A member of the RNA family "Small nucleolar RNA SNORD28" from Chelonia mydas, 77 nucleotides long. It scores 57 bits against the family's covariance model. The family's consensus secondary structure was predicted with PFOLD. A reference for the family is Tycowski et al. (1996), "A mammalian gene with introns instead of exons generating stable RNA products", Nature.

RNA sequence: GCCAGGUGAUCUGAACUAGUUCCUCUGAAAAGUUUUGAAGAACAUUGGUCAAUAAGCAUGUUAGAGUUCUGAUGGCA
Numbered sequence: 001g002c003c004a005g006g007u008g009a010u011c012u013g014a015a016c017u018a019g020u021u022c023c024u025c026u027g028a029a030a031a032g033u034u035u036u037g038a039a040g041a042a043c044a045u046u047g048g049u050c051a052a053u054a055a056g057c058a059u060g061u062u063a064g065a066g067u068u069c070u071g072a073u074g075g076c077a
Base pairs, nucleotide, nucleotide: 001076002075003074004073